[Rfam]
RNA sequence: GGGAGUAGAUGAGUUCUGGUGUGCUCUCUGGUCUUCAAAACCAGCAUAAGGAGUUUGUAGCUUCUUAGGUGGGUUCGAUUCCCACAUAUUCCC
Numbered sequence: 001g002g003g004a005g006u007a008g009a010u011g012a013g014u015u016c017u018g019g020u021g022u023g024c025u026c027u028c029u030g031g032u033c034u035u036c037a038a039a040a041c042c043a044g045c046a047u048a049a050g051g052a053g054u055u056u057g058u059a060g061c062u063u064c065u066u067a068g069g070u071g072g073g074u075u076c077g078a079u080u081c082c083c084a085c086a087u088a089u090u091c092c093c
Stems, first nucleotide, its partner, number of pairs: 001093007008085001011026004016021001028044005047067005070084004
This 93-nucleotide sequence from Parvimonas micra belongs to the Rfam family "Selenocysteine transfer RNA".
A search with the family's covariance model found it, with a score of 71 bits.
Rfam links the family to the GO term triplet codon-amino acid adaptor activity.